[Rfam]
RNA sequence: AGCUUUCUGUAUCCGUGCUGAGAUCUCGUCAAUCACCAGGCCAUCAGCACUGAUAAGACCCCCAGACACGUCAGUG
Dot-bracket structure: ..(.((.(((.((...(..(.(.(((.(((.....................))).)))).))..)).)))..)).)

Description:
mir-3492 microRNA precursor family: a 76-nucleotide RNA from Schistosoma japonicum.